[Rfam]
Shown here is an 84-nucleotide RNA from Dasypus novemcinctus, a member of the family "Small nucleolar RNA SNORD11B". It is one of the family's seed sequences. The family's consensus secondary structure was predicted with WAR. The family has 37 seed sequences and 733 matches in Rfam 15.1.
RNA sequence: UGAUGGCAAUGAUGAUUUUUUUAACUUGCUCACCUGAUAUGCACAUAUGAGGGUGUAUAGUCACUACCUCAUCUGAUGCCAUCU
Numbered sequence: 001u002g003a004u005g006g007c008a009a010u011g012a013u014g015a016u017u018u019u020u021u022u023a024a025c026u027u028g029c030u031c032a033c034c035u036g037a038u039a040u041g042c043a044c045a046u047a048u049g050a051g052g053g054u055g056u057a058u059a060g061u062c063a064c065u066a067c068c069u070c071a072u073c074u075g076a077u078g079c080c081a082u083c084u
Base pairs, nucleotide, nucleotide: 002083003082004081005080006079007078